MIR2655 microRNA precursor family: a 252-nucleotide sequence from Trifolium subterraneum. Pairs were carried over by alignment from the consensus structure, which was predicted with RNAalifold. Rfam links the family to the GO terms miRNA-mediated post-transcriptional gene silencing and RISC complex.
[Rfam]
RNA sequence: CCAGUAUCUUUUAAAAGUUUCAAGUUGGUCUCUUAUCUUUAUUUUAGGUUUCAAGUUGGUCCCUUCCGUCAAUUUUUUAACAAUUUCCGUUAAAUUUAGACACAUGGCGAACUAAUUUGGACACGUUGCACACUUGGACAUAUGACACGUGUCCAAAUUUAACGGAAAUAGUUAAAAAAUUGACGGAAGGGACCAACUUGAAACCUAAAAUAAAGAUAAGGGACCAACUUGAAACUUUUAAAAGAUAAGGGA
Numbered sequence: 001c002c003a004g005u006a007u008c009u010u011u012u013a014a015a016a017g018u019u020u021c022a023a024g025u026u027g028g029u030c031u032c033u034u035a036u037c038u039u040u041a042u043u044u045u046a047g048g049u050u051u052c053a054a055g056u057u058g059g060u061c062c063c064u065u066c067c068g069u070c071a072a073u074u075u076u077u078u079a080a081c082a083a084u085u086u087c088c089g090u091u092a093a094a095u096u097u098a099g100a101c102a103c104a105u106g107g108c109g110a111a112c113u114a115a116u117u118u119g120g121a122c123a124c125g126u127u128g129c130a131c132a133c134u135u136g137g138a139c140a141u142a143u144g145a146c147a148c149g150u151g152u153c154c155a156a157a158u159u160u161a162a163c164g165g166a167a168a169u170a171g172u173u174a175a176a177a178a179a180u181u182g183a184c185g186g187a188a189g190g191g192a193c194c195a196a197c198u199u200g201a202a203a204c205c206u207a208a209a210a211u212a213a214a215g216a217u218a219a220g221g222g223a224c225c226a227a228c229u230u231g232a233a234a235c236u237u238u239u240a241a242a243a244g245a246u247a248a249g250g251g252a
Base pairs, nucleotide, nucleotide: 002250005247006246007245008244023229024228025227027225028224029223031221032220033219034218035217036216037215038214039213040212041211042210043209045207046206047205